[Rfam]
RNA sequence: CAAAGCAAGAAGAAGCGCCCGCUUCUCACCUGAUUGACGCAUAAGGCAGUUGACAGGUUUUACGGACUUAAUGAGAAAACACGUAUGCAGAAGUGUGGGCGAUGGAUGUGCCGCACUUUUUUAUUUUG
Numbered sequence: 001c002a003a004a005g006c007a008a009g010a011a012g013a014a015g016c017g018c019c020c021g022c023u024u025c026u027c028a029c030c031u032g033a034u035u036g037a038c039g040c041a042u043a044a045g046g047c048a049g050u051u052g053a054c055a056g057g058u059u060u061u062a063c064g065g066a067c068u069u070a071a072u073g074a075g076a077a078a079a080c081a082c083g084u085a086u087g088c089a090g091a092a093g094u095g096u097g098g099g100c101g102a103u104g105g106a107u108g109u110g111c112c113g114c115a116c117u118u119u120u121u122u123a124u125u126u127u128g
Stems, first nucleotide, its partner, number of pairs: 011026006028058003036051003039047002094115005100110002